[Rfam]
RNA sequence: AAAGAGCCCUACCGGAAAGGAGCAGCGACUCCAUCCUGACCUCGAGUCUUGCGCCGGUCGUCGCGAGGCGGCAGGCGAAGCGUAGACAGAGGCAUCGGUGGGCUGGGCGAUUGAGCUCCGAAAACAAAGAACCGGGCGCCGACCCUUUUCUGUCAGCGGGAAGGCCACACCGGCCGAUGGCGCUAGAUCGCGAGUCAUGGCCGGGCCCGGCGUAGUCGAAGACCC
Numbered sequence: 001a002a003a004g005a006g007c008c009c010u011a012c013c014g015g016a017a018a019g020g021a022g023c024a025g026c027g028a029c030u031c032c033a034u035c036c037u038g039a040c041c042u043c044g045a046g047u048c049u050u051g052c053g054c055c056g057g058u059c060g061u062c063g064c065g066a067g068g069c070g071g072c073a074g075g076c077g078a079a080g081c082g083u084a085g086a087c088a089g090a091g092g093c094a095u096c097g098g099u100g101g102g103c104u105g106g107g108c109g110a111u112u113g114a115g116c117u118c119c120g121a122a123a124a125c126a127a128a129g130a131a132c133c134g135g136g137c138g139c140c141g142a143c144c145c146u147u148u149u150c151u152g153u154c155a156g157c158g159g160g161a162a163g164g165c166c167a168c169a170c171c172g173g174c175c176g177a178u179g180g181c182g183c184u185a186g187a188u189c190g191c192g193a194g195u196c197a198u199g200g201c202c203g204g205g206c207c208c209g210g211c212g213u214a215g216u217c218g219a220a221g222a223c224c225c
Stems, first nucleotide, its partner, number of pairs: 012038001014036003019032003025191002040092004046087004050082002052077004057072006112219001113217001115216003119212002132210006138165003143159002145156002170204006177198005
Dot-bracket structure: ...........(.(((..(((...[[...))).))).).((((..((((((((((.((((((....)))))).))))...)).)))).))))...................((.(((.((...........(((((((((..((((........)).))...)))....((((((.(((((........]]..))))))))))))))))))).)))).)......